[Rfam]
RNA sequence: AGAUGUUCUACAGGGUCGACAUGAGACCACAUGAAGCUAUCAUAUUUGUCUAUGUUAUCCAACUCAUGUGUUCUCAGGUCGCCCCUGCUGAAUUUUC
Numbered sequence: 001a002g003a004u005g006u007u008c009u010a011c012a013g014g015g016u017c018g019a020c021a022u023g024a025g026a027c028c029a030c031a032u033g034a035a036g037c038u039a040u041c042a043u044a045u046u047u048g049u050c051u052a053u054g055u056u057a058u059c060c061a062a063c064u065c066a067u068g069u070g071u072u073c074u075c076a077g078g079u080c081g082c083c084c085c086u087g088c089u090g091a092a093u094u095u096u097c
Stems, first nucleotide, its partner, number of pairs: 007091002011087004017081003023075004028070005
Dot-bracket structure: ......((..((((..(((...((((.(((((.................................))))).))))...)))..))))..))......

Shown here is a 97-nucleotide RNA sequence, a member of the family "MIR398 microRNA precursor family". The sequence is in the family's curated seed alignment. A reference for the family is Xie et al. (2005), "Expression of Arabidopsis MIRNA genes", Plant Physiol.